[Rfam]
RNA: Plant signal recognition particle RNA
RNA sequence: GCCGAGCCCGGUAUCGUUGGCUUGUGACCCGAGCGGGGGCGGACGGGUUGUGGUAUGGCGUGAUAGGCUCGUGUGGGUUGGGUGCGGCCGCACAGUUACUCGGCUUGCCCAUUCUAAGUCAGGCAGAUGUUCUAUGUGACCUUGGCGAAGGCCGUAGCCUCGUAGUAACCUAAAGCGCGGAGGGUACCGCGUCAGGCUGGCUUCACAGAGCAGCGACCACCUCCCCCUGUUGACGGUAGAAGGAUAACAGGCCGUCGUACGCCGCACCCUCCAUGCCUUCCGAGCUUACACUGACCAAACCACCACCUUU
Numbered sequence: 001g002c003c004g005a006g007c008c009c010g011g012u013a014u015c016g017u018u019g020g021c022u023u024g025u026g027a028c029c030c031g032a033g034c035g036g037g038g039g040c041g042g043a044c045g046g047g048u049u050g051u052g053g054u055a056u057g058g059c060g061u062g063a064u065a066g067g068c069u070c071g072u073g074u075g076g077g078u079u080g081g082g083u084g085c086g087g088c089c090g091c092a093c094a095g096u097u098a099c100u101c102g103g104c105u106u107g108c109c110c111a112u113u114c115u116a117a118g119u120c121a122g123g124c125a126g127a128u129g130u131u132c133u134a135u136g137u138g139a140c141c142u143u144g145g146c147g148a149a150g151g152c153c154g155u156a157g158c159c160u161c162g163u164a165g166u167a168a169c170c171u172a173a174a175g176c177g178c179g180g181a182g183g184g185u186a187c188c189g190c191g192u193c194a195g196g197c198u199g200g201c202u203u204c205a206c207a208g209a210g211c212a213g214c215g216a217c218c219a220c221c222u223c224c225c226c227c228u229g230u231u232g233a234c235g236g237u238a239g240a241a242g243g244a245u246a247a248c249a250g251g252c253c254g255u256c257g258u259a260c261g262c263c264g265c266a267c268c269c270u271c272c273a274u275g276c277c278u279u280c281c282g283a284g285c286u287u288a289c290a291c292u293g294a295c296c297a298a299a300c301c302a303c304c305a306c307c308u309u310u
Base pairs, nucleotide, nucleotide: 001040002039003038004023005022006021007020008019010017028037029036030035043310045308046307047306048305050303051302052301053300056297057296059293060292061290062289065286066285068284069283070282071281073279075278076277077276078275080269081268082267083266084265085264086263087262088261090260092258095256101254102253103252104251105250106249107248109243110242112241113240114239115238116237118234119233120232121231123230124229125228126227129169130168131167132165133164134163135162136161138159140157143154144153145152146151170175179224180223181222182221183220190215191214192213197208198207199206